[Rfam]
RNA sequence: AUGGUCUCAGAAAGGCUCCUGUGUGGUUGAACUUGCCUAAUGUGGGUGCAUCCUCAUACCUGACAGUUCAACCUUGACCUAAAGUAUAUUCCCAUAGAAUAAUUUCCUAGGCUCAGAAUUUGCAAUUACAGGUGUGAAGAUUCUUACAGUAAUUGGAUGAUUGUAUGUAUGUUGAUGAUGCAAACAGGA
Numbered sequence: 001a002u003g004g005u006c007u008c009a010g011a012a013a014g015g016c017u018c019c020u021g022u023g024u025g026g027u028u029g030a031a032c033u034u035g036c037c038u039a040a041u042g043u044g045g046g047u048g049c050a051u052c053c054u055c056a057u058a059c060c061u062g063a064c065a066g067u068u069c070a071a072c073c074u075u076g077a078c079c080u081a082a083a084g085u086a087u088a089u090u091c092c093c094a095u096a097g098a099a100u101a102a103u104u105u106c107c108u109a110g111g112c113u114c115a116g117a118a119u120u121u122g123c124a125a126u127u128a129c130a131g132g133u134g135u136g137a138a139g140a141u142u143c144u145u146a147c148a149g150u151a152a153u154u155g156g157a158u159g160a161u162u163g164u165a166u167g168u169a170u171g172u173u174g175a176u177g178a179u180g181c182a183a184a185c186a187g188g189a
Stems, first nucleotide, its partner, number of pairs: 003079004010072001014068004019062001021060001023059002025053002028050002031047003091111002096105003119184006126177001129174002135165001136162002140158003146153001

The record is a 189-nucleotide RNA from Cricetulus griseus, which matches "Small Cajal body specific RNA 16" in Rfam. Rfam's curators write: scaRNAs are a specific class of small nuclear RNAs which localise to the Cajal bodies and guide the modification of RNA polymerase II transcribed spliceosomal RNAs U1, U2, U4, U5 and U12. ACA47 belongs to the H/ACA box class of guide RNAs as it has the predicted hairpin-hinge-hairpin-tail structure, the conserved H/ACA-box motifs and is found associated with GAR1. ACA47 is predicted to guide the pseudouridylation of residue U5 of the U1 spliceosomal snRNA. Its family is annotated with nucleolus and RNA processing in the Gene Ontology. Lineage of the source: Eukaryota > Metazoa > Craniata > Teleostomi > Cricetulus. The match comes from Rfam's covariance-model search (102 bits). The literature on the family includes a 2002 paper in EMBO J by Darzacq et al., "Cajal body-specific small nuclear RNAs: a novel class of 2'-O-methylation and pseudouridylation guide RNAs".